Rfam assigns this 114-nucleotide RNA sequence from Xenopus tropicalis to the family "U5 spliceosomal RNA".
U5 RNA is a component of both types of known spliceosome.
The base pairs follow the family's consensus structure, which is taken from published work.
The match comes from Rfam's covariance-model search (99 bits).
RNA sequence: AUACUCUGUUUCUCUUCAAAUCGAAUAAAUCUUUCGCCUUUUACUAAAGAUUUCCGUGGAGAGGAACGACCAUGAGUUUCAUUGAAUUUUUUGAGGCUUGGUUCACGCCAGGCU
Numbered sequence: 001a002u003a004c005u006c007u008g009u010u011u012c013u014c015u016u017c018a019a020a021u022c023g024a025a026u027a028a029a030u031c032u033u034u035c036g037c038c039u040u041u042u043a044c045u046a047a048a049g050a051u052u053u054c055c056g057u058g059g060a061g062a063g064g065a066a067c068g069a070c071c072a073u074g075a076g077u078u079u080c081a082u083u084g085a086a087u088u089u090u091u092u093g094a095g096g097c098u099u100g101g102u103u104c105a106c107g108c109c110a111g112g113c114u
Stems, first nucleotide, its partner, number of pairs: 003077004008067011027053008094114001096113006